RNA sequence: UUGCCUUAAACUAAUGAGUAAGGAAAACAAAGCGAGCGGUGAGAGCCGGUCGCCGCGCUACUCAUAACCAAAAUGAGCGCAUGAAUUUAUGGAGGGGUUAUAGGCUGGCCAAGUGUUGACGCUGCUUACUUUUGCAGAACUCACUUGUGCGGGCCUCCC
Numbered sequence: 001u002u003g004c005c006u007u008a009a010a011c012u013a014a015u016g017a018g019u020a021a022g023g024a025a026a027a028c029a030a031a032g033c034g035a036g037c038g039g040u041g042a043g044a045g046c047c048g049g050u051c052g053c054c055g056c057g058c059u060a061c062u063c064a065u066a067a068c069c070a071a072a073a074u075g076a077g078c079g080c081a082u083g084a085a086u087u088u089a090u091g092g093a094g095g096g097g098u099u100a101u102a103g104g105c106u107g108g109c110c111a112a113g114u115g116u117u118g119a120c121g122c123u124g125c126u127u128a129c130u131u132u133u134g135c136a137g138a139a140c141u142c143a144c145u146u147g148u149g150c151g152g153g154c155c156u157c158c159c
Stems, first nucleotide, its partner, number of pairs: 004023005032053004037048003054079003058075001096159002102156005108150001110147002113144003122137004